[Rfam]
RNA: Early nodulin 40
Organism: Tripterygium wilfordii
RNA sequence: AUGGAAUUCUUUUGGCAAGAAUCUGUUCAUGGGUCUUAAUAAAAAAGAGAGGUGUUGGUUGGAGGAGUUGGGAGUGAGGGAUGUGAUUCCCUGAAUAUUCAUUCCUCUACCUUCUCCAAAAAGAAUCAUAAACAGUUUGCUUGUGCUUAGCCUUUUAAGCAGAGAGCUUUUAGGGUUUUAUCACUGGCAGACCGGCAAGUCACAGAACGGCGACAGGCUCAUGAGUUUAUGAGUCUU
Dot-bracket structure: ........................................................((.........................................................)).................((((((.............(.........................)......)))))).......................((((((((....))))))))..